Rfam assigns this 62-nucleotide RNA to the family "L2-Alphaproteobacteria ribosomal protein leader". Pairs were carried over by alignment from the consensus structure, which is taken from published work.
[Rfam]
RNA sequence: GGGGACCUUCGGGGCCCUUUACCACCGGGGUUGACCCCCCGCAAAGCAACGGAAGACAGAAA
Number, nucleotide and partner (000 for none) at each position: 001g018002g017003g016004g015005a000006c014007c013008u012009u000010c000011g000012g008013g007014g006015c004016c003017c002018u001019u000020u000021a000022c000023c000024a000025c000026c041027g040028g039029g038030g037031u000032u000033g000034a000035c000036c000037c030038c029039c028040c027041g026042c000043a000044a000045a000046g000047c000048a000049a000050c000051g000052g000053a000054a000055g000056a000057c000058a000059g000060a000061a000062a000